Shown here is a 66-nucleotide RNA sequence from Mesocricetus auratus, a member of the family "Small nucleolar RNA SNORD109A". The family has 7 seed sequences and 412 matches in Rfam 15.1. About the family: Humans have two copies of the SNORD109 gene, SNORD109A and SNORD109B. The family is grouped with related families in Rfam's "SNORD74 clan". Its family is annotated with nucleolus and RNA processing in the Gene Ontology. The base pairs follow the family's consensus structure, which was predicted with WAR. For this family Rfam cites "The IC-SNURF-SNRPN transcript serves as a host for multiple small nucleolar RNA species and as an antisense RNA for UBE3A" (Runte et al., Hum Mol Genet, 2001). The source organism's lineage runs through Eukaryota, Eumetazoa, Craniata, Cricetidae and Mesocricetus. It scores 52 bits against the family's covariance model.
RNA sequence: GGAUCAAUGAUGACAAGAAGUCUCUGAGGACGGUGAUCGACUUGUAAUUAUGCCAAUCUGAGCUCC
Numbered sequence: 001g002g003a004u005c006a007a008u009g010a011u012g013a014c015a016a017g018a019a020g021u022c023u024c025u026g027a028g029g030a031c032g033g034u035g036a037u038c039g040a041c042u043u044g045u046a047a048u049u050a051u052g053c054c055a056a057u058c059u060g061a062g063c064u065c066c
Stems, first nucleotide, its partner, number of pairs: 001066003005062001